[Rfam]
RNA: Histone 3' UTR stem-loop
Organism: Trichonephila clavipes
RNA sequence: CUAAAGGCUUUUUUCAAAGCCAAUUAUAUAAAAAAUUUAUUUCUUU
Numbered sequence: 001c002u003a004a005a006g007g008c009u010u011u012u013u014u015c016a017a018a019g020c021c022a023a024u025u026a027u028a029u030a031a032a033a034a035a036u037u038u039a040u041u042u043c044u045u046u
Base pairs, nucleotide, nucleotide: 006021007020008019009018010017011016